The record is a 266-nucleotide sequence from Nannospalax galili, which matches "Mason-Pfizer monkey virus packaging signal" in Rfam. The organism belongs to Nannospalax, within Eukaryota. This family represents a group of sequences that are related to the Mason-Pfizer monkey virus (MPMV) packaging signal. The packaging signal is located in the 5' UTR and is required for specific RNA encapsidation. Pairs were carried over by alignment from the consensus structure, which was predicted with PFOLD. By type it is a cis-regulatory element.
[Rfam]
RNA sequence: UGGCGCCCAAUAUGGGGCUUGGAUACUGGGGGACAACGUGAGGGUCCGACGAUGGAAGAAAAAUGGGUGCGCACCCGCUCAAAUAAUUCGGAGACGCCAUGGGAGCCUGCCGCGACAGAGCCAAAGGUAAGUUGGUAAUUCAAAUAUGGGGCAAGAACUAAGUCAGCAUCAGAUUUAUGUGAUACAGUUAAGAGAAGCUCUACAGGCAAGAGGAGUAAAGUUUAAAACUGAGAAUUUCUUUGAUUUUGUAAAGGACACUUGUCCCU
Numbered sequence: 001u002g003g004c005g006c007c008c009a010a011u012a013u014g015g016g017g018c019u020u021g022g023a024u025a026c027u028g029g030g031g032g033a034c035a036a037c038g039u040g041a042g043g044g045u046c047c048g049a050c051g052a053u054g055g056a057a058g059a060a061a062a063a064u065g066g067g068u069g070c071g072c073a074c075c076c077g078c079u080c081a082a083a084u085a086a087u088u089c090g091g092a093g094a095c096g097c098c099a100u101g102g103g104a105g106c107c108u109g110c111c112g113c114g115a116c117a118g119a120g121c122c123a124a125a126g127g128u129a130a131g132u133u134g135g136u137a138a139u140u141c142a143a144a145u146a147u148g149g150g151g152c153a154a155g156a157a158c159u160a161a162g163u164c165a166g167c168a169u170c171a172g173a174u175u176u177a178u179g180u181g182a183u184a185c186a187g188u189u190a191a192g193a194g195a196a197g198c199u200c201u202a203c204a205g206g207c208a209a210g211a212g213g214a215g216u217a218a219a220g221u222u223u224a225a226a227a228c229u230g231a232g233a234a235u236u237u238c239u240u241u242g243a244u245u246u247u248g249u250a251a252a253g254g255a256c257a258c259u260u261g262u263c264c265c266u
Stems, first nucleotide, its partner, number of pairs: 006031003013025002037051003087129001089127001095120001098114001100112003133154001135152002139150004159202002162198002210241006219229004251266001253264004